[Rfam]
RNA sequence: UAACUGUUUGUAACACCCCUCAAACCAAGACCUAUAGGGUGUCUAAACACGUCUUUCAUAUCCUAGACUUAGGGUGUCUGGGAAAUAGUAACUCCA
Numbered sequence: 001u002a003a004c005u006g007u008u009u010g011u012a013a014c015a016c017c018c019c020u021c022a023a024a025c026c027a028a029g030a031c032c033u034a035u036a037g038g039g040u041g042u043c044u045a046a047a048c049a050c051g052u053c054u055u056u057c058a059u060a061u062c063c064u065a066g067a068c069u070u071a072g073g074g075u076g077u078c079u080g081g082g083a084a085a086u087a088g089u090a091a092c093u094c095c096a
Stems, first nucleotide, its partner, number of pairs: 014041005020036001027055005062082007

Record summary
Rfam assigns this 96-nucleotide sequence to the family "PhotoRC-II RNA".